[Rfam]
RNA sequence: CGAAGCUUGAGAGGAUCUGUCCCUAGUACGAGAGGACCGGGAUGGACAUACCUCUGGUGGACCUGUCGUGGCGCCAGCCGCGCAGCAGGGUAGCUAAGUAUGGAAUAGAUAACCGCUGAAAGCAUCUAAGCGGGAAACUAACCUCAAAACAAGGCUUCGCUGAGGAUCGUGGAAGACUACCACGUUGAUAGGCCAGGUGUGGAAGCGCGGCGACGCGUGAAGCUUACUGGUACUAAUAAUCCGAUCG
Numbered sequence: 001c002g003a004a005g006c007u008u009g010a011g012a013g014g015a016u017c018u019g020u021c022c023c024u025a026g027u028a029c030g031a032g033a034g035g036a037c038c039g040g041g042a043u044g045g046a047c048a049u050a051c052c053u054c055u056g057g058u059g060g061a062c063c064u065g066u067c068g069u070g071g072c073g074c075c076a077g078c079c080g081c082g083c084a085g086c087a088g089g090g091u092a093g094c095u096a097a098g099u100a101u102g103g104a105a106u107a108g109a110u111a112a113c114c115g116c117u118g119a120a121a122g123c124a125u126c127u128a129a130g131c132g133g134g135a136a137a138c139u140a141a142c143c144u145c146a147a148a149a150c151a152a153g154g155c156u157u158c159g160c161u162g163a164g165g166a167u168c169g170u171g172g173a174a175g176a177c178u179a180c181c182a183c184g185u186u187g188a189u190a191g192g193c194c195a196g197g198u199g200u201g202g203a204a205g206c207g208c209g210g211c212g213a214c215g216c217g218u219g220a221a222g223c224u225u226a227c228u229g230g231u232a233c234u235a236a237u238a239a240u241c242c243g244a245u246c247g
Stems, first nucleotide, its partner, number of pairs: 001159008011145004017045007047102005055096003062089005067082006106140003113133005164242004168184005189235003192231005197225001199223001205218005

Rfam assigns this 247-nucleotide part of an RNA from Brevundimonas sp. Leaf363 to the family "Bacterial large subunit ribosomal RNA". It scores 2746 bits against the family's covariance model.